Shown here is a 363-nucleotide RNA from Clostridium tyrobutyricum, a member of the family "transfer-messenger RNA". Clan: tRNA clan. Lineage of the source: Bacteria > Bacillota > Clostridia > Clostridiaceae > Clostridium tyrobutyricum. Pairs were carried over by alignment from the consensus structure, which is taken from published work. It is annotated as a non-coding RNA gene. The match comes from Rfam's covariance-model search (181 bits).
RNA sequence: GGGGGCGCAUUUUGGUUUCGACGGGGGCAAGUUGGGUUUGAGAAGCGAGUCGAGGGAACCUGUGGACCCGCGUUAAAAAACUAUGGGGUUUAAAUAUAAACGCAAAUAAUAACGAAGAAUUAGCUUUAGCAGCGUAAUCUGCUAGCCGUCAGUCCGGAUUUCCCGCGUUCCGGAGCCUGGCGCCGAUAGCGGGGUCCCGAGUCCAGGAAAGCUUUGACUUGGAAACGGAAUUUAUGAAGCUACUGAAUUCAGAAGCCUGUCCUUAGGCGUCUGAAGGAGGGAAUGUUAAAAUAAGGACUGCACUCGGAGAUGCUCAGGCGUUUCUGCUUUCGGACAGGGGUUCGACUCCCCUCGCCUCCACCA
Numbered sequence: 001g002g003g004g005g006c007g008c009a010u011u012u013u014g015g016u017u018u019c020g021a022c023g024g025g026g027g028c029a030a031g032u033u034g035g036g037u038u039u040g041a042g043a044a045g046c047g048a049g050u051c052g053a054g055g056g057a058a059c060c061u062g063u064g065g066a067c068c069c070g071c072g073u074u075a076a077a078a079a080a081c082u083a084u085g086g087g088g089u090u091u092a093a094a095u096a097u098a099a100a101c102g103c104a105a106a107u108a109a110u111a112a113c114g115a116a117g118a119a120u121u122a123g124c125u126u127u128a129g130c131a132g133c134g135u136a137a138u139c140u141g142c143u144a145g146c147c148g149u150c151a152g153u154c155c156g157g158a159u160u161u162c163c164c165g166c167g168u169u170c171c172g173g174a175g176c177c178u179g180g181c182g183c184c185g186a187u188a189g190c191g192g193g194g195u196c197c198c199g200a201g202u203c204c205a206g207g208a209a210a211g212c213u214u215u216g217a218c219u220u221g222g223a224a225a226c227g228g229a230a231u232u233u234a235u236g237a238a239g240c241u242a243c244u245g246a247a248u249u250c251a252g253a254a255g256c257c258u259g260u261c262c263u264u265a266g267g268c269g270u271c272u273g274a275a276g277g278a279g280g281g282a283a284u285g286u287u288a289a290a291a292u293a294a295g296g297a298c299u300g301c302a303c304u305c306g307g308a309g310a311u312g313c314u315c316a317g318g319c320g321u322u323u324c325u326g327c328u329u330u331c332g333g334a335c336a337g338g339g340g341u342u343c344g345a346c347u348c349c350c351c352u353c354g355c356c357u358c359c360a361c362c363a
Stems, first nucleotide, its partner, number of pairs: 001359007022332008031323001034321001036319007044311001046306005051072002054069002059087006126145007147182006153174006160167001161194006197228003202223004210241006243280002248275005255268003259298004264291001336352005